[Rfam]
RNA: Small nucleolar RNA SNORA44
RNA sequence: ACGCAUGCUUUCCAAGGAUCCGGGCUCUGCUGUAGUCCUGGGUUCUCCAAGAGCGUGCCAGAGAAACGGAGAGACUUUGACUGUCGAAGCUGAUCUGUGCCUGUGGCAGUCACUCUACUGUCCCACACCU
Numbered sequence: 001a002c003g004c005a006u007g008c009u010u011u012c013c014a015a016g017g018a019u020c021c022g023g024g025c026u027c028u029g030c031u032g033u034a035g036u037c038c039u040g041g042g043u044u045c046u047c048c049a050a051g052a053g054c055g056u057g058c059c060a061g062a063g064a065a066a067c068g069g070a071g072a073g074a075c076u077u078u079g080a081c082u083g084u085c086g087a088a089g090c091u092g093a094u095c096u097g098u099g100c101c102u103g104u105g106g107c108a109g110u111c112a113c114u115c116u117a118c119u120g121u122c123c124c125a126c127a128c129c130u
Stems, first nucleotide, its partner, number of pairs: 012041002017037002019034001021032003068123003072119002083110002087102001089100001